[Rfam]
RNA sequence: GUGUGAACUAGAGGAGCGGAUCGUCAUCAGUACCCGUUGGGAGGUUGCGGUAGCCGUGGACCGGCGGGGAAAGGGACAUCCGCCGAAGUUUCCGGCCCGCCGCAGGGCUGGGGAACUGGGCCCGUUCUUGAACAAAGGCGGGACUGUCACGACUCCUGUCCGGGGAGACGUGGAGCACUGUGUAUCAC
Number, nucleotide and partner (000 for none) at each position: 001g000002u000003g000004u000005g000006a183007a000008c000009u180010a179011g178012a000013g000014g000015a000016g083017c082018g081019g080020a079021u078022c000023g077024u076025c075026a000027u000028c000029a000030g000031u000032a000033c068034c067035c066036g065037u064038u063039g062040g061041g000042a000043g000044g000045u000046u000047g000048c000049g000050g000051u000052a000053g000054c000055c000056g000057u000058g000059g000060a000061c040062c039063g038064g037065c036066g035067g034068g033069g000070a000071a000072a000073g000074g000075g025076a024077c023078a021079u020080c019081c018082g017083c016084c000085g000086a000087a117088g116089u115090u114091u112092c111093c110094g109095g108096c107097c106098c105099g000100c000101c000102g000103c000104a000105g098106g097107g096108c095109u094110g093111g092112g091113g000114a090115a089116c088117u087118g145119g144120g000121c142122c141123c140124g139125u138126u137127c000128u135129u000130g000131a000132a000133c000134a000135a128136a000137g126138g125139c124140g123141g122142g121143a000144c119145u118146g000147u173148c172149a171150c170151g169152a000153c167154u166155c165156c000157u000158g000159u000160c000161c000162g000163g000164g000165g155166a154167g153168a000169c151170g150171u149172g148173g147174a000175g000176c000177a000178c011179u010180g009181u000182g000183u006184a000185u000186c000187a000188c000
RNA: Lysine riboswitch aptamer
Organism: Kroppenstedtia eburnea